[Rfam]
RNA sequence: AGGUCACAAUCAACAUUCAUUGUUGUCGGUGGGUUGUGAAGAUGGAGGCCAGACCCACCGAGGGAUGAAUGUCACUGUGGCUGG
Numbered sequence: 001a002g003g004u005c006a007c008a009a010u011c012a013a014c015a016u017u018c019a020u021u022g023u024u025g026u027c028g029g030u031g032g033g034u035u036g037u038g039a040a041g042a043u044g045g046a047g048g049c050c051a052g053a054c055c056c057a058c059c060g061a062g063g064g065a066u067g068a069a070u071g072u073c074a075c076u077g078u079g080g081c082u083g084g
Stems, first nucleotide, its partner, number of pairs: 003082001004080005014071008026061006033054003
Rfam assigns this 84-nucleotide RNA from Pteropus alecto to the family "mir-181 microRNA precursor family". The family's consensus secondary structure was predicted with PFOLD. A search with the family's covariance model found it, with a score of 55 bits. Taxonomically the source falls in Pteropus (Eukaryota, Metazoa, Eumetazoa, Tetrapoda). Rfam links the family to the GO terms miRNA-mediated post-transcriptional gene silencing and RISC complex.